[Rfam]
Small nucleolar RNA SNORA33: a 132-nucleotide RNA from Jaculus jaculus. Gene Ontology terms of the family: nucleolus and RNA processing. NCBI's taxonomy places the organism under Eukaryota, Amniota, Mammalia, Eutheria, Jaculus. The family has 28 seed sequences and 1,176 matches in Rfam 15.1. About the family: ACA33 is a member of the H/ACA class of snoRNA that guide the sites of modification of uridines to pseudouridines.
RNA sequence: AAGCCAGACAAUGAAUCUGCUUAUCUGAAUGUGUUUCUGCAGAAAUUUAGAAGUAGCUAGUAAUAGUGAUGCCAUUUUAUGAGCCAUAAGGACAAAUUGAGAUCAUUACAGUCCCUCACAAUGACUACAAUG
Numbered sequence: 001a002a003g004c005c006a007g008a009c010a011a012u013g014a015a016u017c018u019g020c021u022u023a024u025c026u027g028a029a030u031g032u033g034u035u036u037c038u039g040c041a042g043a044a045a046u047u048u049a050g051a052a053g054u055a056g057c058u059a060g061u062a063a064u065a066g067u068g069a070u071g072c073c074a075u076u077u078u079a080u081g082a083g084c085c086a087u088a089a090g091g092a093c094a095a096a097u098u099g100a101g102a103u104c105a106u107u108a109c110a111g112u113c114c115c116u117c118a119c120a121a122u123g124a125c126u127a128c129a130a131u132g
Stems, first nucleotide, its partner, number of pairs: 003061002006058002016043005071125001073123002083112002087108003091104002